[Rfam]
RNA sequence: CCAAUGUGGAUACACCCAGGAGGUCACUCUCUCCCCAGGCUGUGUCCAAGUAGCAUAGGGGAGCACAGGGCUCUGUCCCCAUGAUGUACUGUCCUUUUCCAUGACAUUGGAGAUGAAGCUGGACCUCAACUCUGCACAUGCAUAUUCCUACAACUUCUCAGAGUCCUGUGGAUAAUGACGGAGGAGAGAAACCAUGCAGGAAACAGCC
Numbered sequence: 001c002c003a004a005u006g007u008g009g010a011u012a013c014a015c016c017c018a019g020g021a022g023g024u025c026a027c028u029c030u031c032u033c034c035c036c037a038g039g040c041u042g043u044g045u046c047c048a049a050g051u052a053g054c055a056u057a058g059g060g061g062a063g064c065a066c067a068g069g070g071c072u073c074u075g076u077c078c079c080c081a082u083g084a085u086g087u088a089c090u091g092u093c094c095u096u097u098u099c100c101a102u103g104a105c106a107u108u109g110g111a112g113a114u115g116a117a118g119c120u121g122g123a124c125c126u127c128a129a130c131u132c133u134g135c136a137c138a139u140g141c142a143u144a145u146u147c148c149u150a151c152a153a154c155u156u157c158u159c160a161g162a163g164u165c166c167u168g169u170g171g172a173u174a175a176u177g178a179c180g181g182a183g184g185a186g187a188g189a190a191a192c193c194a195u196g197c198a199g200g201a202a203a204c205a206g207c208c
Stems, first nucleotide, its partner, number of pairs: 001110007008047005015039002019030004050102002053099001059095004063089001065087003068082001137200001139198005154186006163173004
Dot-bracket structure: ((((((((((((..((..((((....)))).......))...)))))..((.(.....(((((.((((.............)..))).)..))))...).)).)))))))..........................(.(((((..........((((((...((((...)))).......)))))).......))))).)........
Small nucleolar RNA SNORA73 family: a 208-nucleotide sequence from Homo sapiens. The family's RNA type in Rfam is H/ACA-box small nucleolar RNA. Its Rfam clan is "snR30-U17 clan". Rfam 15.1 lists 2,326 matches to the family in 660 species. U17 (SNORA73A and SNORA73B) also known as E1 belongs to the H/ACA class of small nucleolar RNAs (snoRNAs). Vertebrate U17 is intron-encoded and ranges in length from 200-230 nucleotides, longer than most snoRNAs. It is one of the most abundant snoRNAs in human cells and is essential for the cleavage of pre-rRNA within the 5' external transcribed spacer (ETS). This cleavage leads to the formation of 18S rRNA. Regions of the U17 RNA are complementary to rRNA and act as guides for RNA/RNA interactions, although these regions do not seem to be well conserved between organisms. Gene Ontology terms of the family: nucleolus and RNA processing.